[Rfam]
RNA sequence: GUGCUUUAGGGAUGAACAAGUCCCUGAUAUGUAAUUCAAUCCAUCUGUAUCACUUUGUCAGCAUUAUUCUCUAGUAUCUUGCUGAUCAUUGGAGGGUGGAAUAUGC
Numbered sequence: 001g002u003g004c005u006u007u008a009g010g011g012a013u014g015a016a017c018a019a020g021u022c023c024c025u026g027a028u029a030u031g032u033a034a035u036u037c038a039a040u041c042c043a044u045c046u047g048u049a050u051c052a053c054u055u056u057g058u059c060a061g062c063a064u065u066a067u068u069c070u071c072u073a074g075u076a077u078c079u080u081g082c083u084g085a086u087c088a089u090u091g092g093a094g095g096g097u098g099g100a101a102u103a104u105g106c
Base pairs, nucleotide, nucleotide: 040100041099042098043097044096045095057086058085059084060083061082062081063080
Small nucleolar RNA snoR99: a 106-nucleotide RNA sequence from Hevea brasiliensis. The family's RNA type in Rfam is H/ACA-box small nucleolar RNA. The match comes from Rfam's covariance-model search (100 bits). The source organism's lineage runs through Eukaryota, Spermatophyta, eudicotyledons, Pentapetalae and Hevea.